[Rfam]
RNA: MIR7486 microRNA precursor family
RNA sequence: CCUGGGGGAGCGUUUUGUCCAUGUCAGUACAAAGUGCUUCCUUGAGGGCGCAUUUUGUGCUGACGUGGACAAAACACUCUCCCAGGG
Numbered sequence: 001c002c003u004g005g006g007g008g009a010g011c012g013u014u015u016u017g018u019c020c021a022u023g024u025c026a027g028u029a030c031a032a033a034g035u036g037c038u039u040c041c042u043u044g045a046g047g048g049c050g051c052a053u054u055u056u057g058u059g060c061u062g063a064c065g066u067g068g069a070c071a072a073a074a075c076a077c078u079c080u081c082c083c084a085g086g087g
Stems, first nucleotide, its partner, number of pairs: 001086010012075010023064015040047002